[Rfam]
RNA: MIR6152 microRNA precursor family
RNA sequence: UGGACAGAUUACUGUAUUCAACUGUAUUCACAGCGUGAAAUAGGGGAUUACGCUGUUUUUAAAACGGAAAGUGAAUCAAUUAACAUAACUCCU
Dot-bracket structure: .(((........(((.((.((.((.((((((..((((((((((.........)))))))....)))....)))))))).)))).)))..))).